[Rfam]
RNA sequence: AUCUAUUUUCAAACAUUCUCUAAUAACAUUUAAAUCUGUUCUUAUCAGUUUAAUCUCUGAUAAAUCCUUUAUUUAAGGACUUUGUAUUAAAUUGAUUUUUGUAACAGGGGGCUGGGCUUGGAGCUUGCUCCAUCCACCCCAUGCAUCGACCUGGUAUUGCAGUGUCCCCAGGUCCGGUGCAUCCCCU
Numbered sequence: 001a002u003c004u005a006u007u008u009u010c011a012a013a014c015a016u017u018c019u020c021u022a023a024u025a026a027c028a029u030u031u032a033a034a035u036c037u038g039u040u041c042u043u044a045u046c047a048g049u050u051u052a053a054u055c056u057c058u059g060a061u062a063a064a065u066c067c068u069u070u071a072u073u074u075a076a077g078g079a080c081u082u083u084g085u086a087u088u089a090a091a092u093u094g095a096u097u098u099u100u101g102u103a104a105c106a107g108g109g110g111g112c113u114g115g116g117c118u119u120g121g122a123g124c125u126u127g128c129u130c131c132a133u134c135c136a137c138c139c140c141a142u143g144c145a146u147c148g149a150c151c152u153g154g155u156a157u158u159g160c161a162g163u164g165u166c167c168c169c170a171g172g173u174c175c176g177g178u179g180c181a182u183c184c185c186c187u
Stems, first nucleotide, its partner, number of pairs: 007025001009023001011021001043062006065079005108140004114134002120131004143180006150172005
RNA: U2 spliceosomal RNA
Organism: Chelydra serpentina